A member of the RNA family "Bacterial large subunit ribosomal RNA" from Clostridium sp. 'deep sea', 233 nucleotides of a longer RNA. A search with the family's covariance model found it, with a score of 2818 bits.
RNA sequence: GAGUUACCAUGAAUAGCAAGGUUAAGGAAUAAAGUUCUGGAGCCGCAGCGAAAGCGAGUCUGAAUAGGGCGAAUAGAGUUAUUGGUGGUAGACCCGAAACCGCGUGAUCUACGCAUGGCCAGAGUGAAGCGUAUGUAAGAGUACGUGGAGGCUCGAACCCACUGAAGUUGAAAAUUCAGGGGAUGAGUUGUGUGUAGGGGUGAAAUGCCAAUCGAACGCGGAGAUAGCUGGUA
Numbered sequence: 001g002a003g004u005u006a007c008c009a010u011g012a013a014u015a016g017c018a019a020g021g022u023u024a025a026g027g028a029a030u031a032a033a034g035u036u037c038u039g040g041a042g043c044c045g046c047a048g049c050g051a052a053a054g055c056g057a058g059u060c061u062g063a064a065u066a067g068g069g070c071g072a073a074u075a076g077a078g079u080u081a082u083u084g085g086u087g088g089u090a091g092a093c094c095c096g097a098a099a100c101c102g103c104g105u106g107a108u109c110u111a112c113g114c115a116u117g118g119c120c121a122g123a124g125u126g127a128a129g130c131g132u133a134u135g136u137a138a139g140a141g142u143a144c145g146u147g148g149a150g151g152c153u154c155g156a157a158c159c160c161a162c163u164g165a166a167g168u169u170g171a172a173a174a175u176u177c178a179g180g181g182g183a184u185g186a187g188u189u190g191u192g193u194g195u196a197g198g199g200g201u202g203a204a205a206u207g208c209c210a211a212u213c214g215a216a217c218g219c220g221g222a223g224a225u226a227g228c229u230g231g232u233a
Base pairs, nucleotide, nucleotide: 005090006089007088008087009086010085012083013082014081015080016079017078020044021043022042023041026038027037028036048055049054058070059069060068061067093231094230096228100221101220102219103218104217105216109197110196111195112194113193114192115191116190117189118188119187120185122154123153124152125151129146130145131144132143133142134141158182159181160180162179163178164177165176166175199209200208201207